[Rfam]
This 86-nucleotide RNA sequence from Trichonephila clavata belongs to the Rfam family "Selenocysteine transfer RNA". The literature on the family includes a 2000 paper in FEBS Lett by Mizutani and Goto, "Eukaryotic selenocysteine tRNA has the 9/4 secondary structure". The family has 109 seed sequences and 4,211 matches in Rfam 15.1. Pairs were carried over by alignment from the consensus structure, which is taken from published work.
RNA sequence: GCCCAGAUGAGCAUCGGUGGUCCGGUGUGCGGGCUUCAAACCCGUAGCUGAUGAGAGUCAGAGUUGUUCGAUUCCACCUUCUAGGC
Numbered sequence: 001g002c003c004c005a006g007a008u009g010a011g012c013a014u015c016g017g018u019g020g021u022c023c024g025g026u027g028u029g030c031g032g033g034c035u036u037c038a039a040a041c042c043c044g045u046a047g048c049u050g051a052u053g054a055g056a057g058u059c060a061g062a063g064u065u066g067u068u069c070g071a072u073u074c075c076a077c078c079u080u081c082u083a084g085g086c
Stems, first nucleotide, its partner, number of pairs: 001086003005082003009078001012027006028046006048061005063077002066074001